RNA sequence: ACGGAAAUUUACAUAUUCAUACGUUUUGUCUGUAUCGUGAAGUUUGGAGUCGUUUUUGUUGAAACGAUUCCACGCAUUUUCGAGUGCCAAUAUUUUAGCUUGAAAUUAAGAGGCCUU
Numbered sequence: 001a002c003g004g005a006a007a008u009u010u011a012c013a014u015a016u017u018c019a020u021a022c023g024u025u026u027u028g029u030c031u032g033u034a035u036c037g038u039g040a041a042g043u044u045u046g047g048a049g050u051c052g053u054u055u056u057u058g059u060u061g062a063a064a065c066g067a068u069u070c071c072a073c074g075c076a077u078u079u080u081c082g083a084g085u086g087c088c089a090a091u092a093u094u095u096u097a098g099c100u101u102g103a104a105a106u107u108a109a110g111a112g113g114c115c116u117u
Stems, first nucleotide, its partner, number of pairs: 001117001003115002008110004016104004023096001027092003032087003035083003039079003042075002045072012
The record is a 117-nucleotide RNA from Drosophila persimilis, which matches "mir-2528 microRNA precursor family" in Rfam. Taxonomically the source falls in Sophophora (Eukaryota, Metazoa, Diptera, Brachycera). Rfam links the family to the GO terms miRNA-mediated post-transcriptional gene silencing and RISC complex. Pairs were carried over by alignment from the consensus structure, which was predicted with RNAalifold.